The record is a 90-nucleotide sequence from a Nitrosopumilaceae archaeon, which matches "DUF3800-X RNA" in Rfam. By type it is a small RNA. Taxonomically the source falls in Nitrosopumilaceae (Archaea, Thermoproteati, Nitrososphaeria, Nitrosopumilales).
RNA sequence: CGGCGAGUAAGGCCCACGGGGCACCGUGGCAUCCGGCCGAAAGGAUGACAGCCAGGCAAUUGGCUAGGGACAACUAGGUCGGAGUCGCCA
Numbered sequence: 001c002g003g004c005g006a007g008u009a010a011g012g013c014c015c016a017c018g019g020g021g022c023a024c025c026g027u028g029g030c031a032u033c034c035g036g037c038c039g040a041a042a043g044g045a046u047g048a049c050a051g052c053c054a055g056g057c058a059a060u061u062g063g064c065u066a067g068g069g070a071c072a073a074c075u076a077g078g079u080c081g082g083a084g085u086c087g088c089c090a
Stems, first nucleotide, its partner, number of pairs: 002089005032083007051064005